[Rfam]
Nucleotides: 116
Stems, first nucleotide, its partner, number of pairs: 009048001011046001012041001014039002018035005054109007064102001066100001069097003077090004
Number, partner (000 for none) and nucleotide at each position: 001000a002000a003000g004000c005000a006000a007000c008000a009048c010000c011046c012041u013000a014039u015038g016000a017000c018035a019034g020033a021032u022031u023000g024000u025000c026000a027000a028000a029000g030000u031022a032021g033020u034019c035018u036000a037000g038015c039014a040000c041012a042000a043000u044000u045000u046011g047000a048009g049000c050000a051000a052000g053000a054109a055108a056107g057106u058105c059104u060103a061000a062000c063000c064102u065000a066100u067000u068000c069097c070096g071095g072000c073000a074000c075000u076000c077090u078089c079088u080087c081000c082000u083000c084000u085000a086000u087080g088079a089078g090077a091000c092000g093000g094000c095071c096070c097069g098000u099000u100066a101000c102064a103060u104059a105058g106057a107056c108055u109054u110000g111000a112000a113000c114000a115000g116000u